[Rfam]
Nucleotides: 070
Stems, first nucleotide, its partner, number of pairs: 006023004037053003044064002
Number, partner (000 for none) and nucleotide at each position: 001000a002000a003000a004000u005000u006023g007022u008021g009020g010000a011000g012000u013000c014000c015000a016000g017000a018000u019000a020009c021008c022007a023006c024000u025000u026000a027000a028000a029000a030000u031000a032000a033000a034000c035000g036000g037053g038052g039051a040000g041000u042000u043000a044064c045063u046000g047000a048000a049000a050000a051039u052038c053037c054000a055000a056000a057000a058000g059000a060000g061000u062000a063045g064044g065000g066000g067000a068000a069000c070000a
DUF805 RNA: a 70-nucleotide RNA from Flavobacterium soyangense.
The base pairs follow the family's consensus structure, which is taken from published work.
The family's RNA type in Rfam is cis-regulatory element.